[Rfam]
Source information:
Rfam assigns this 145-nucleotide sequence from Gossypium aridum to the family "MIR7502 microRNA precursor family". The source organism's lineage runs through Eukaryota, Viridiplantae, Streptophyta, Tracheophyta and Gossypium. The match comes from Rfam's covariance-model search (73 bits).
RNA sequence: UAUAAAAAAUUUCAUUUGUUUCUACUAUUAAAAACUAUUGUGGUUAACGGAAUAAUCAAACAGCUACACGCGAUGUGUCACGUGCACCUUAUGUUGACGUUCAAGAACCAAUUUGAAACAAUAGAAAUAGAUAAAAUUUGUAACA
Number, nucleotide and partner (000 for none) at each position: 001u000002a000003u143004a000005a141006a000007a139008a138009a137010u136011u135012u134013c000014a132015u131016u130017u000018g128019u127020u126021u125022c124023u123024a122025c000026u120027a000028u118029u117030a000031a000032a114033a113034a000035c000036u000037a000038u000039u000040g000041u000042g000043g000044u000045u000046a000047a000048c000049g000050g000051a000052a000053u000054a000055a000056u000057c000058a000059a000060a000061c000062a000063g000064c000065u000066a000067c000068a000069c000070g000071c000072g000073a000074u000075g000076u000077g000078u000079c000080a000081c000082g000083u000084g000085c000086a000087c000088c000089u000090u000091a000092u000093g000094u000095u000096g000097a000098c000099g000100u000101u000102c000103a000104a000105g000106a000107a000108c000109c000110a000111a000112u000113u033114u032115g000116a000117a029118a028119c000120a026121a000122u024123a023124g022125a021126a020127a019128u018129a000130g016131a015132u014133a000134a012135a011136a010137u009138u008139u007140g000141u005142a000143a003144c000145a000
Rfam 15.1 lists 74,505 matches to the family in 24 species.